[Rfam]
RNA sequence: UGUUUGCUGUGACGAAUCACAAGAACGGUAUCUGAGUAAGGGUGGCUCUUGAAAGUCCCCCUUCGUUGAUUACCCAUCCUAAACUGAUCAUAUCUUCUGAGCGAACA
Numbered sequence: 001u002g003u004u005u006g007c008u009g010u011g012a013c014g015a016a017u018c019a020c021a022a023g024a025a026c027g028g029u030a031u032c033u034g035a036g037u038a039a040g041g042g043u044g045g046c047u048c049u050u051g052a053a054a055g056u057c058c059c060c061c062u063u064c065g066u067u068g069a070u071u072a073c074c075c076a077u078c079c080u081a082a083a084c085u086g087a088u089c090a091u092a093u094c095u096u097c098u099g100a101g102c103g104a105a106c107a
Base pairs, nucleotide, nucleotide: 001107002106003105004104005103006102007101036064038062040061041060042059

The record is a 107-nucleotide sequence from Triticum aestivum, which matches "Small nucleolar RNA Z118/Z121/Z120" in Rfam. NCBI's taxonomy places the organism under Eukaryota, Mesangiospermae, Liliopsida, commelinids, Triticum. Rfam 15.1 lists 435 matches to the family in 31 species. A search with the family's covariance model found it, with a score of 66 bits. Its family is annotated with RNA processing and nucleolus in the Gene Ontology.